About this RNA:
The family of this 107-nucleotide sequence from Cephalotus follicularis is "Plant small nucleolar RNA R71". By type it is a C/D-box small nucleolar RNA. The literature on the family includes a 2003 paper in Trends Plant Sci by Brown et al., "Plant snoRNAs: functional evolution and new modes of gene expression". Pairs were carried over by alignment from the consensus structure, which was predicted with PFOLD.

RNA sequence: AAACCAUGAUGAGGAAACUCUAAGAGGAGGUCUUUGAAAUGUUCCAUACAUCUAGAGAAUGAUUCAUUGGGUCUUUGGAGAAAUUGAAAAAUGUCAUUCCUAAGCUU
Dot-bracket structure: (..(.(.................................................((..(..........).))..........................)..)..)